Nucleotides: 100
Stems, first nucleotide, its partner, number of pairs: 005091002008088004013082001016078004020031004035050001037048001058072005
Number, partner (000 for none) and nucleotide at each position: 001000u002000u003000a004000u005091u006090u007000g008088a009087u010086g011085g012000c013082a014000u015000a016078g017077c018076a019075a020031u021030g022029a023028a024000g025000u026000a027000c028023u029022u030021u031020g032000c033000a034000a035050g036000c037048a038000u039000a040000c041000a042000c043000a044000a045000u046000a047000u048037u049000u050035c051000c052000a053000c054000c055000c056000c057000u058072a059071u060070g061069u062068a063000a064000u065000u066000a067000g068062u069061g070060c071059a072058u073000u074000a075019u076018u077017g078016u079000u080000u081000a082013u083000c084000c085011c086010c087009a088008u089000g090006a091005a092000u093000a094000a095000u096000a097000u098000a099000u100000a
The record is a 100-nucleotide RNA sequence from Cebus imitator, which matches "Mitochondrial DNA control region secondary structure A" in Rfam. By type it is an antisense RNA. NCBI's taxonomy places the organism under Eukaryota, Amniota, Eutheria, Primates, Cebus. On this family, see Pereira et al., Mol Biol Evol 2008: "Evidence for variable selective pressures at a large secondary structure of the human mitochondrial DNA control region".